About this RNA: A member of the RNA family "Alphaproteobacterial ar14" from Pseudaminobacter soli, 120 nucleotides long. Smr14C2 was renamed NfeR1 (Nodule Formation Efficiency RNA) highly expressed in salt stress and during the symbiotic interaction on legume roots. It is annotated as a small RNA. Lineage of the source: Bacteria > Pseudomonadati > Alphaproteobacteria > Phyllobacteriaceae > Pseudaminobacter.
[Rfam]
RNA sequence: CCCUGUCGGCCGUCUACUCCUCCCAGAUGAGACCCGACAUCCGAUAGCGGCGCAUCCUCCUCCCGCGCCGCGUUCGAUUUGAGCCCGUUGCCACCUCCUCCCCGGCAGCGGGCUCUCUAG
Numbered sequence: 001c002c003c004u005g006u007c008g009g010c011c012g013u014c015u016a017c018u019c020c021u022c023c024c025a026g027a028u029g030a031g032a033c034c035c036g037a038c039a040u041c042c043g044a045u046a047g048c049g050g051c052g053c054a055u056c057c058u059c060c061u062c063c064c065g066c067g068c069c070g071c072g073u074u075c076g077a078u079u080u081g082a083g084c085c086c087g088u089u090g091c092c093a094c095c096u097c098c099u100c101c102c103c104g105g106c107a108g109c110g111g112g113c114u115c116u117c118u119a120g
Stems, first nucleotide, its partner, number of pairs: 007036003011029004043075002047071006081115011
A search with the family's covariance model found it, with a score of 60 bits.